Shown here is a 164-nucleotide RNA sequence from Glonium stellatum, a member of the family "Small nucleolar RNA snR80". Its family is annotated with RNA processing and nucleolus in the Gene Ontology. For this family Rfam cites "Genome-wide searching for pseudouridylation guide snoRNAs: analysis of the Saccharomyces cerevisiae genome" (Schattner et al., Nucleic Acids Res, 2004). It is annotated as an H/ACA-box small nucleolar RNA. The organism belongs to Glonium, within Eukaryota.
RNA sequence: GUACUUUGCCAACACUCUGGCCCUUACCCCAUUCCUCUUGGAUUGGACUUCUCGAUGGUAUAGGCCUAUUUUGGUGCAAAGGAGAGGAAUAUUUCGACCUAUUACUCACCGCGGCACUCUGUCCUUUGGAGUGGGUGCAGGGGUCCAUCUUAUUUGGUCUACAU
Numbered sequence: 001g002u003a004c005u006u007u008g009c010c011a012a013c014a015c016u017c018u019g020g021c022c023c024u025u026a027c028c029c030c031a032u033u034c035c036u037c038u039u040g041g042a043u044u045g046g047a048c049u050u051c052u053c054g055a056u057g058g059u060a061u062a063g064g065c066c067u068a069u070u071u072u073g074g075u076g077c078a079a080a081g082g083a084g085a086g087g088a089a090u091a092u093u094u095c096g097a098c099c100u101a102u103u104a105c106u107c108a109c110c111g112c113g114g115c116a117c118u119c120u121g122u123c124c125u126u127u128g129g130a131g132u133g134g135g136u137g138c139a140g141g142g143g144u145c146c147a148u149c150u151u152a153u154u155u156g157g158u159c160u161a162c163a164u
Stems, first nucleotide, its partner, number of pairs: 006079003019066004025060004096159004109143002112140001114138003118135003